[Rfam]
RNA: GcvB RNA
Organism: Citrobacter sp. JGM124
RNA sequence: ACUUCUUGAGCCGGAACGAAAAGUCAUCUGAAAUGCGUGUUCAGAGUGCUUUUGGCUUAUGGUUGUGUUGUUGUGUUGUUGUGUUGUUGUGUUUGGCCUGACAUUUCAGGCUGCGCUAACAGGGCUACCCUAUUUUUUCUUUCUGUAAGUUUACCCUGUCUGUAAAUCGUCAUUUUUUAUAGCACCGCCUUUUGCGGUGCUUUUUUUU
Number, nucleotide and partner (000 for none) at each position: 001a000002c000003u000004u000005c000006u000007u000008g000009a057010g056011c055012c054013g000014g000015a053016a052017c000018g000019a000020a000021a051022a050023g049024u048025c000026a000027u045028c044029u043030g042031a041032a000033a040034u039035g000036c000037g000038u000039g034040u033041u031042c030043a029044g028045a027046g000047u000048g024049c023050u022051u021052u016053u015054g012055g011056c010057u009058u000059a000060u000061g000062g000063u000064u000065g000066u000067g000068u000069u000070g000071u000072u000073g000074u000075g000076u000077u000078g000079u000080u000081g000082u000083g000084u000085u000086g000087u000088u000089g000090u000091g000092u000093u000094u113095g112096g111097c110098c109099u108100g107101a106102c000103a000104u000105u000106u101107c100108a099109g098110g097111c096112u095113g094114c000115g129116c000117u127118a126119a000120c124121a000122g000123g000124g120125c000126u118127a117128c000129c115130c000131u000132a000133u000134u000135u000136u000137u000138u000139c000140u000141u000142u000143c000144u000145g000146u000147a000148a178149g177150u000151u000152u000153a000154c000155c000156c000157u000158g000159u000160c000161u000162g000163u000164a000165a000166a000167u000168c000169g000170u000171c000172a000173u000174u000175u000176u000177u149178u148179a000180u000181a201182g200183c199184a198185c197186c196187g195188c194189c000190u000191u000192u000193u000194g188195c187196g186197g185198u184199g183200c182201u181202u000203u000204u000205u000206u000207u000208u000